[Rfam]
RNA sequence: UGGUCAUUACCAAGGCUUUUAGAAUGCAGUUUGCUGUGAACAUGACCAUAAAGAAAUUUCCCACUAGGUUUUCUAUAUGCUACUUUGUUAACAAUCAACCUACUGGGGACACUA
Numbered sequence: 001u002g003g004u005c006a007u008u009a010c011c012a013a014g015g016c017u018u019u020u021a022g023a024a025u026g027c028a029g030u031u032u033g034c035u036g037u038g039a040a041c042a043u044g045a046c047c048a049u050a051a052a053g054a055a056a057u058u059u060c061c062c063a064c065u066a067g068g069u070u071u072u073c074u075a076u077a078u079g080c081u082a083c084u085u086u087g088u089u090a091a092c093a094a095u096c097a098a099c100c101u102a103c104u105g106g107g108g109a110c111a112c113u114a
Stems, first nucleotide, its partner, number of pairs: 003046005011038002026034003060107004067100004078093002
RNA: Small nucleolar RNA SNORA32